[Rfam]
RNA sequence: CAGGCAUGCUGGAGCUCCGCAGCGGCGCCCGGGUCGACAACCCCGACACCGUGUUCACAUCGGAGCUUGU
Numbered sequence: 001c002a003g004g005c006a007u008g009c010u011g012g013a014g015c016u017c018c019g020c021a022g023c024g025g026c027g028c029c030c031g032g033g034u035c036g037a038c039a040a041c042c043c044c045g046a047c048a049c050c051g052u053g054u055u056c057a058c059a060u061c062g063g064a065g066c067u068u069g070u
Stems, first nucleotide, its partner, number of pairs: 012068008023051003030045004034040001
This 70-nucleotide RNA from Rhizobium sp. AC44/96 belongs to the Rfam family "ybhL leader". For this family Rfam cites "Evidence for a second class of S-adenosylmethionine riboswitches and other regulatory RNA motifs in alpha-proteobacteria" (Corbino et al., Genome Biol, 2005). The pairing is the family consensus, mapped onto this sequence. The organism belongs to Rhizobium, within Bacteria. This family is a putative regulatory RNA structure that is found upstream of an uncharacterized membrane protein in alpha-proteobacteria.